RNA sequence: AUCAAGUUACAGGGGGUCACAGCAGGAGCGUUAAAUGUCGCUGUCCCGGUCGAACCCAUGUACUAAUGGGUCGUGAAUCCUGCU
Numbered sequence: 001a002u003c004a005a006g007u008u009a010c011a012g013g014g015g016g017u018c019a020c021a022g023c024a025g026g027a028g029c030g031u032u033a034a035a036u037g038u039c040g041c042u043g044u045c046c047c048g049g050u051c052g053a054a055c056c057c058a059u060g061u062a063c064u065a066a067u068g069g070g071u072c073g074u075g076a077a078u079c080c081u082g083c084u
Stems, first nucleotide, its partner, number of pairs: 013047005021084007028041003051073003055069002
Shown here is an 84-nucleotide sequence from Zootermopsis nevadensis, a member of the family "Mammalian CPEB3 ribozyme". The family's consensus secondary structure is taken from published work. Lineage of the source: Eukaryota > Bilateria > Mandibulata > Insecta > Zootermopsis. A search with the family's covariance model found it, with a score of 38 bits. About the family: The mammalian CPEB3 ribozyme is a self cleaving RNA located in the second intron of the CPEB3 gene which belongs to a family of genes regulating messenger RNA polyadenylation.